[Rfam]
RNA: mir-2774 microRNA precursor family
RNA sequence: ACAACAUGCGGACCGUCGGUGUACCGAGCAAUUUCACCCGCUCGGUGGAAGAUCUUUACUUUCCU
Numbered sequence: 001a002c003a004a005c006a007u008g009c010g011g012a013c014c015g016u017c018g019g020u021g022u023a024c025c026g027a028g029c030a031a032u033u034u035c036a037c038c039c040g041c042u043c044g045g046u047g048g049a050a051g052a053u054c055u056u057u058a059c060u061u062u063c064c065u
Stems, first nucleotide, its partner, number of pairs: 004062001011057002015053003020049001022047008